[Rfam]
RNA: SAM-I/IV (S-adenosyl methionine) riboswitch aptamer
RNA sequence: AAUGUGUAUCUAGAGCAGGAUUAAAUUCCUCUCCAACCUGCCUACUCCGGCAAGGUGGAAAAAUGAUGCGGUUAACCAACAAUUAAUGGAGUUAUA
Numbered sequence: 001a002a003u004g005u006g007u008a009u010c011u012a013g014a015g016c017a018g019g020a021u022u023a024a025a026u027u028c029c030u031c032u033c034c035a036a037c038c039u040g041c042c043u044a045c046u047c048c049g050g051c052a053a054g055g056u057g058g059a060a061a062a063a064u065g066a067u068g069c070g071g072u073u074a075a076c077c078a079a080c081a082a083u084u085a086a087u088g089g090a091g092u093u094a095u096a
Base pairs, nucleotide, nucleotide: 006069007068008067009066010065015031017030018029019028020027032059033058034057037055038054039053040051041050042049044092045091046090047089048088071080072079073078